[Rfam]
RNA sequence: GCCAUCGCAAGGGAGGAUUUUCCUCGGGUACUGACCAUACCCCGACCCCA
Numbered sequence: 001g002c003c004a005u006c007g008c009a010a011g012g013g014a015g016g017a018u019u020u021u022c023c024u025c026g027g028g029u030a031c032u033g034a035c036c037a038u039a040c041c042c043c044g045a046c047c048c049c050a
Stems, first nucleotide, its partner, number of pairs: 005045003013025005026042005
Dot-bracket structure: ....(((.....(((((...)))))(((((.......)))))))).....
RNA: Insect-Specific Flavivirus 3' UTR repeats Ra
Organism: Culex flavivirus